The record is a 103-nucleotide RNA sequence from Macrostomum lignano, which matches "rpsL sRNA" in Rfam. The family's consensus secondary structure is taken from published work. The family's RNA type in Rfam is small RNA. Lineage of the source: Eukaryota > Eumetazoa > Bilateria > Spiralia > Macrostomum.
[Rfam]
RNA sequence: ACAAUAUUUUUUUUUGCUUUGAAUAUUGGCAACAAAGCACAAAUUAUUUAACUAGGCCUAACCAUGUCAUAUGUAAUAUGUCAUGUAUUCAUGCAAAAACAAA
Numbered sequence: 001a002c003a004a005u006a007u008u009u010u011u012u013u014u015u016g017c018u019u020u021g022a023a024u025a026u027u028g029g030c031a032a033c034a035a036a037g038c039a040c041a042a043a044u045u046a047u048u049u050a051a052c053u054a055g056g057c058c059u060a061a062c063c064a065u066g067u068c069a070u071a072u073g074u075a076a077u078a079u080g081u082c083a084u085g086u087a088u089u090c091a092u093g094c095a096a097a098a099a100c101a102a103a
Stems, first nucleotide, its partner, number of pairs: 012098006020091006063085004